[Rfam]
RNA sequence: AUCAGACCGACUUAGAACCAACUCGAGACGAAGAAAGAGAGAGAAAGAUAGGUUAGAGAACGAAAAGUGAAAGCUCUAGAAAACAGCUAGCAAAAAAAGUUUUUUAGACCACCAAGAUUAAAAGAGAAAUUAAUCAAGGAGCUAAACAAAAUCUCAGUUUAGACGCUUUCGAACUCGAACUAAGA
Numbered sequence: 001a002u003c004a005g006a007c008c009g010a011c012u013u014a015g016a017a018c019c020a021a022c023u024c025g026a027g028a029c030g031a032a033g034a035a036a037g038a039g040a041g042a043g044a045a046a047g048a049u050a051g052g053u054u055a056g057a058g059a060a061c062g063a064a065a066a067g068u069g070a071a072a073g074c075u076c077u078a079g080a081a082a083a084c085a086g087c088u089a090g091c092a093a094a095a096a097a098a099g100u101u102u103u104u105u106a107g108a109c110c111a112c113c114a115a116g117a118u119u120a121a122a123a124g125a126g127a128a129a130u131u132a133a134u135c136a137a138g139g140a141g142c143u144a145a146a147c148a149a150a151a152u153c154u155c156a157g158u159u160u161a162g163a164c165g166c167u168u169u170c171g172a173a174c175u176c177g178a179a180c181u182a183a184g185a
Stems, first nucleotide, its partner, number of pairs: 001049003011039003061171005075108009116135005124155004142162006
Dot-bracket structure: (((.......(((.......................))).......)))...........(((((.........(((((((((................))))))))).......(((((...[[[[...)))))......((((((....]]]].))))))....)))))..............
RNA: IMES-1 RNA motif